The record is a 120-nucleotide RNA sequence from Homo sapiens, which matches "Y RNA" in Rfam. Pairs were carried over by alignment from the consensus structure, which is taken from published work. The source organism's lineage runs through Eukaryota, Metazoa, Teleostomi, Amniota and Homo. By type it is a non-coding RNA gene.
RNA sequence: AGCUGUUCUGAGGGUAGUGAGUUAUCUCAAUUGACUGUUCACCAUGAGUUACAGUUGAACUCCUUGUUCUACUCUUUCUCCUCACCCUUCUCACUACUGACUGCACUUGACUAGUCUUUU
Number, nucleotide and partner (000 for none) at each position: 001a000002g115003c114004u113005g112006u000007u110008c109009u000010g108011a107012g000013g000014g104015u103016a095017g094018u093019g092020a091021g090022u000023u000024a000025u000026c000027u000028c000029a000030a000031u000032u000033g074034a073035c000036u000037g000038u000039u000040c000041a000042c000043c000044a000045u000046g000047a000048g000049u000050u000051a000052c000053a000054g000055u000056u000057g000058a000059a000060c000061u000062c000063c000064u000065u000066g000067u000068u000069c000070u000071a000072c000073u034074c033075u000076u000077u000078c000079u000080c000081c000082u000083c000084a000085c000086c000087c000088u000089u000090c021091u020092c019093a018094c017095u016096a000097c000098u000099g000100a000101c000102u000103g015104c014105a000106c000107u011108u010109g008110a007111c000112u005113a004114g003115u002116c000117u000118u000119u000120u000